[Rfam]
Archaeal large subunit ribosomal RNA: a 540-nucleotide part of an RNA from Methanothrix thermoacetophila. NCBI's taxonomy places the organism under Archaea, Methanotrichales, Methanotrichaceae, Methanothrix, Methanothrix thermoacetophila. The family's consensus secondary structure is taken from published work. Its family is annotated with ribosome and structural constituent of ribosome in the Gene Ontology. The match comes from Rfam's covariance-model search (2883 bits).

RNA sequence: CUGAUAUGCCAGCCGGGGGAUGGCUCGGCUCGAGCGCUGAUGAAGGGCGUGCCAAGCUGCGAUAAGCCCCGGCGAGGCGCAGGGAGCCUUUGAACCGGGGAUGCCCUAAUGGGAAAUCCCAGUUUCAUGCUGAUCCGUAAGGAUCGGGAACGCCCCGGAUUGAAACAUCUUAGUAGGGGCAGGAGAAGAAAUCAAAACGAGAUGCCGUCAGUAACGGCGAGUGAACGCGGCAGAGCCCAAACCGAAUCCCGAAAGGGAGAUGUGGUGUGAUAAGCACCGCUCAUAACGGUCUGGCAAGGGAAUCCGAAGUGGCCUGGAACGGCCCGCCAAAGAGUGUGAUAGCCACGUAGGAGCAACCAAGCCGGAUCCGAGCGGCGUCUUGAGUACCGUGAGUCGGAUAUCUCGCGGGAAGUUGGGGGUCACCAACCUCCAAGGCUAAAUACGUCUCGAGACCGAUAGCGCAGUAGUAGGGUGACCUAAAGCUGAAAAGAACCCUGGAUAGGGGUGUGAAAAGAGCCUGAAAUCGGCUGGCGAUGGUGC
Numbered sequence: 001c002u003g004a005u006a007u008g009c010c011a012g013c014c015g016g017g018g019g020a021u022g023g024c025u026c027g028g029c030u031c032g033a034g035c036g037c038u039g040a041u042g043a044a045g046g047g048c049g050u051g052c053c054a055a056g057c058u059g060c061g062a063u064a065a066g067c068c069c070c071g072g073c074g075a076g077g078c079g080c081a082g083g084g085a086g087c088c089u090u091u092g093a094a095c096c097g098g099g100g101a102u103g104c105c106c107u108a109a110u111g112g113g114a115a116a117u118c119c120c121a122g123u124u125u126c127a128u129g130c131u132g133a134u135c136c137g138u139a140a141g142g143a144u145c146g147g148g149a150a151c152g153c154c155c156c157g158g159a160u161u162g163a164a165a166c167a168u169c170u171u172a173g174u175a176g177g178g179g180c181a182g183g184a185g186a187a188g189a190a191a192u193c194a195a196a197a198c199g200a201g202a203u204g205c206c207g208u209c210a211g212u213a214a215c216g217g218c219g220a221g222u223g224a225a226c227g228c229g230g231c232a233g234a235g236c237c238c239a240a241a242c243c244g245a246a247u248c249c250c251g252a253a254a255g256g257g258a259g260a261u262g263u264g265g266u267g268u269g270a271u272a273a274g275c276a277c278c279g280c281u282c283a284u285a286a287c288g289g290u291c292u293g294g295c296a297a298g299g300g301a302a303u304c305c306g307a308a309g310u311g312g313c314c315u316g317g318a319a320c321g322g323c324c325c326g327c328c329a330a331a332g333a334g335u336g337u338g339a340u341a342g343c344c345a346c347g348u349a350g351g352a353g354c355a356a357c358c359a360a361g362c363c364g365g366a367u368c369c370g371a372g373c374g375g376c377g378u379c380u381u382g383a384g385u386a387c388c389g390u391g392a393g394u395c396g397g398a399u400a401u402c403u404c405g406c407g408g409g410a411a412g413u414u415g416g417g418g419g420u421c422a423c424c425a426a427c428c429u430c431c432a433a434g435g436c437u438a439a440a441u442a443c444g445u446c447u448c449g450a451g452a453c454c455g456a457u458a459g460c461g462c463a464g465u466a467g468u469a470g471g472g473u474g475a476c477c478u479a480a481a482g483c484u485g486a487a488a489a490g491a492a493c494c495c496u497g498g499a500u501a502g503g504g505g506u507g508u509g510a511a512a513a514g515a516g517c518c519u520g521a522a523a524u525c526g527g528c529u530g531g532c533g534a535u536g537g538u539g540c
Base pairs, nucleotide, nucleotide: 007533008532009531010530011529012528013527014526015525016524022518023483024482027454028453029451030450031449032448033447034446035444036443044107045106046105047104048061049060050059067100068099069098070097071096072095076088077087078086111120112119113118133144134143135142136141151182152180153179154178155177156176162169163168192200193199204231205230206229207228208227214222215221234437235436236435237434242265243264244263247258248257249256250255277375278374279373280372288368289367290366291365303352304351305350309325311324312323313322314321328332334346335345336344387408388407389406390405391404392403393402415431416430417429418428419427470477471476
Dot-bracket structure: ......((((((((((.....(((..((((((((((.......(((((((........))).....((((((...(((.......)))......))))))...))))...(((....)))............((((....))))......((((((.....((....))......))))).).........((.....))...(((((.....((.....))....)))))..((((....(((..((((....))))....)))...........((((.......((((...........(((...(.((((......)))))..(...).(((.......)))...)))............))))...))))...........(((((((........)))))))......(((((.......)))))..)))).....)).)))))).))...............((....))....))..................................).....)))))))))).......